[Rfam]
RNA sequence: CCUGCUGUUCCAUCAGCAGUAUUCUAGGAGGUAAUGCAAGAAGGUAACAACUUGUAUAAAGCCCUCUGACAAUGUACCCACGGUGUUCACCGGCAUCAGACUGUGAAGCGAGAUGUAUCUGCUAACAUCAAAGCGGAGAGGGGC
Number, nucleotide and partner (000 for none) at each position: 001c000002c019003u018004g017005c016006u015007g014008u000009u000010c000011c000012a000013u000014c007015a006016g005017c004018a003019g002020u000021a000022u000023u000024c000025u000026a000027g000028g066029a065030g064031g063032u000033a000034a057035u056036g055037c054038a053039a052040g051041a000042a000043g048044g000045u000046a000047a000048c043049a000050a000051c040052u039053u038054g037055u036056a035057u034058a000059a000060a000061g000062c000063c031064c030065u029066c028067u000068g000069a000070c000071a000072a000073u000074g000075u000076a000077c000078c000079c000080a000081c092082g091083g090084u089085g000086u000087u000088c000089a084090c083091c082092g081093g000094c115095a114096u113097c112098a000099g000100a000101c108102u107103g000104u000105g000106a000107a102108g101109c000110g000111a000112g097113a096114u095115g094116u000117a000118u137119c136120u135121g134122c133123u132124a000125a000126c000127a000128u000129c000130a000131a000132a123133g122134c121135g120136g119137a118138g000139a000140g000141g000142g000143g000144c000
This 144-nucleotide RNA from Ktedonobacteria bacterium brp13 belongs to the Rfam family "Group II catalytic intron D1-D4-7". From the family's description: Group II introns are found in rRNA, tRNA and mRNA of organelles in fungi, plants and protists, and also in mRNA in bacteria. Rfam links the family to the GO term Group II intron splicing.